[Rfam]
RNA: traJ-II RNA
Organism: Kerstersia gyiorum
Nucleotides: 097
Base pairs, nucleotide, nucleotide: 002087003086004085005084006083007082008081013051014050016048017047019045020044024040026038027037028036029035055079056078057077058076064070065069
Number, partner (000 for none) and nucleotide at each position: 001000c002087g003086g004085c005084a006083a007082g008081a009000u010000g011000u012000a013051u014050g015000u016048u017047g018000u019045a020044c021000c022000g023000g024040u025000a026038c027037g028036g029035g030000c031000g032000u033000u034000g035029c036028c037027c038026g039000a040024a041000c042000c043000a044020g045019u046000c047017c048016a049000u050014c051013a052000c053000c054000u055079g056078c057077c058076u059000u060000a061000u062000u063000c064070g065069c066000g067000u068000c069065g070064c071000u072000c073000a074000a075000c076058a077057g078056g079055c080000c081008u082007c083006u084005u085004g086003c087002u088000c089000u090000g091000c092000g093000a094000g095000g096000c097000c